[Rfam]
A member of the RNA family "sucA-II RNA" from Azotobacter chroococcum, 215 nucleotides long.
RNA sequence: CUGUGGCGUCGGGAGUGAUCCUGGCGUCGCAGGCAAAGCUGGAUCCGCAGCUCAUGAAGCCGCGCUCCUAUGAAGAAUUUGACUAGCAGGGGCAUCCGGGCAAGUGUCCGGACUAUCUGUGGGAUCCGUAGUGGCUUUACCAAAGUCGCUGCUCCAUGACUUUGGAUCGACCAUGUGCGGCUCGCGCCGGUGGUGUCCCCUCACAAGGGUGACCA
Numbered sequence: 001c002u003g004u005g006g007c008g009u010c011g012g013g014a015g016u017g018a019u020c021c022u023g024g025c026g027u028c029g030c031a032g033g034c035a036a037a038g039c040u041g042g043a044u045c046c047g048c049a050g051c052u053c054a055u056g057a058a059g060c061c062g063c064g065c066u067c068c069u070a071u072g073a074a075g076a077a078u079u080u081g082a083c084u085a086g087c088a089g090g091g092g093c094a095u096c097c098g099g100g101c102a103a104g105u106g107u108c109c110g111g112a113c114u115a116u117c118u119g120u121g122g123g124a125u126c127c128g129u130a131g132u133g134g135c136u137u138u139a140c141c142a143a144a145g146u147c148g149c150u151g152c153u154c155c156a157u158g159a160c161u162u163u164g165g166a167u168c169g170a171c172c173a174u175g176u177g178c179g180g181c182u183c184g185c186g187c188c189g190g191u192g193g194u195g196u197c198c199c200c201u202c203a204c205a206a207g208g209g210u211g212a213c214c215a
Stems, first nucleotide, its partner, number of pairs: 001032013042067002045064001047063002050060003088201005093195002095112006113193005119187003123183002125180002131174004135169001140165001144161005

The organism belongs to Azotobacter chroococcum, within Bacteria.